The family of this 84-nucleotide sequence from Ornithorhynchus anatinus is "mir-1422 microRNA precursor family".
[Rfam]
RNA sequence: CUAAUUUUGUUUUCAUUUAAGGCCAGUGUUUUCUGUGCAUACUAAUAAUCUGGAAAACACUGUCUUAAUUGAUACCGUAGUCAG
Numbered sequence: 001c002u003a004a005u006u007u008u009g010u011u012u013u014c015a016u017u018u019a020a021g022g023c024c025a026g027u028g029u030u031u032u033c034u035g036u037g038c039a040u041a042c043u044a045a046u047a048a049u050c051u052g053g054a055a056a057a058c059a060c061u062g063u064c065u066u067a068a069u070u071g072a073u074a075c076c077g078u079a080g081u082c083a084g
Stems, first nucleotide, its partner, number of pairs: 004081003008077002011074001013072003017068006029057006